Background
This 125-nucleotide RNA from Alkalihalobacillus trypoxylicola belongs to the Rfam family "ylbH leader". A reference for the family is Barrick et al. (2004), "New RNA motifs suggest an expanded scope for riboswitches in bacterial genetic control", Proc Natl Acad Sci U S A. The source organism's lineage runs through Bacteria, Bacillota, Bacilli, Caryophanales and Alkalihalobacillus. Its family is annotated with regulation of gene expression in the Gene Ontology. It is annotated as a cis-regulatory leader. From the family's description: This family is a putative regulatory RNA structure that is found upstream of the ylbH gene in B. subtilis and related low GC Gram-positive bacteria. Pairs were carried over by alignment from the consensus structure.
[Rfam]
RNA sequence: AUAAAAAAAACCUCGUAAGAAAACCCUACGAGGUGCCCAUACACAUACAUUCCGUAUGUAAUCAGGCUAUGGGAGAGGAGAAACCGGAGGAAGAACUUAUGGGGAAACGUAAGUCUUCUCCGCGG
Numbered sequence: 001a002u003a004a005a006a007a008a009a010a011c012c013u014c015g016u017a018a019g020a021a022a023a024c025c026c027u028a029c030g031a032g033g034u035g036c037c038c039a040u041a042c043a044c045a046u047a048c049a050u051u052c053c054g055u056a057u058g059u060a061a062u063c064a065g066g067c068u069a070u071g072g073g074a075g076a077g078g079a080g081a082a083a084c085c086g087g088a089g090g091a092a093g094a095a096c097u098u099a100u101g102g103g104g105a106a107a108c109g110u111a112a113g114u115c116u117u118c119u120c121c122g123c124g125g
Stems, first nucleotide, its partner, number of pairs: 011033007019025001036073005046060005085122004090118004095114005